RNA sequence: AUUAAUUAACAGCUCCGAAGCCUCAGUUCCUAAUCGUUUGUAAUCUCAAAUGUAUGGUGUUUUGGCCGUGACUCAGAGUCACCGGGUUUAGCUUGAAAAGGCUAAGCCUCCCGUGUUUGGAAAGGGGUAACAUGGCCUUAUCU
Number, nucleotide and partner (000 for none) at each position: 001a000002u000003u000004a000005a000006u134007u000008a000009a000010c000011a000012g128013c127014u126015c125016c124017g000018a000019a000020g066021c065022c064023u000024c000025a061026g060027u059028u000029c057030c056031u000032a000033a000034u000035c052036g051037u050038u049039u048040g047041u000042a000043a000044u000045c000046u000047c040048a039049a038050a037051u036052g035053u000054a000055u000056g030057g029058u000059g027060u026061u025062u000063u000064g022065g021066c020067c000068g082069u081070g080071a079072c078073u000074c000075a000076g000077a000078g072079u071080c070081a069082c068083c000084g109085g108086g107087u106088u105089u104090a103091g102092c101093u100094u099095g000096a000097a000098a000099a094100g093101g092102c091103u090104a089105a088106g087107c086108c085109u084110c120111c119112c000113g000114u000115g000116u000117u000118u000119g111120g110121a000122a000123a000124g016125g015126g014127g013128u012129a000130a000131c000132a000133u000134g006135g000136c000137c000138u000139u000140a000141u000142c000143u000
Shown here is a 143-nucleotide RNA from Echinimonas agarilytica, a member of the family "Molybdenum/Tungsten riboswitch aptamer (Moco RNA motif)". The match comes from Rfam's covariance-model search (75 bits). The organism belongs to Echinimonas, within Bacteria.